[Rfam]
RNA sequence: CGGCACUCUCAGGGCGGGGCGAAACUCCCCACCGGCGGUAACGGGGCCAGCCCCCGAAGCCCGCGAGCGGCCCCGGUUCUCCGGGGUGUCAGCAGACCCGGUGCAAUUCCGGGGCCGACGGUCAUAGUCCGGAUGGAAGAGAGCGACA
Numbered sequence: 001c002g003g004c005a006c007u008c009u010c011a012g013g014g015c016g017g018g019g020c021g022a023a024a025c026u027c028c029c030c031a032c033c034g035g036c037g038g039u040a041a042c043g044g045g046g047c048c049a050g051c052c053c054c055c056g057a058a059g060c061c062c063g064c065g066a067g068c069g070g071c072c073c074c075g076g077u078u079c080u081c082c083g084g085g086g087u088g089u090c091a092g093c094a095g096a097c098c099c100g101g102u103g104c105a106a107u108u109c110c111g112g113g114g115c116c117g118a119c120g121g122u123c124a125u126a127g128u129c130c131g132g133a134u135g136g137a138a139g140a141g142a143g144c145g146a147c148a
Stems, first nucleotide, its partner, number of pairs: 004145001006143005017029003031128002033117002035064004059115002067093002097113005119131003
Rfam assigns this 148-nucleotide RNA from Roseovarius nubinhibens to the family "FMN riboswitch aptamer (RFN element)". Lineage of the source: Bacteria > Pseudomonadati > Rhodobacterales > Roseovarius > Roseovarius nubinhibens.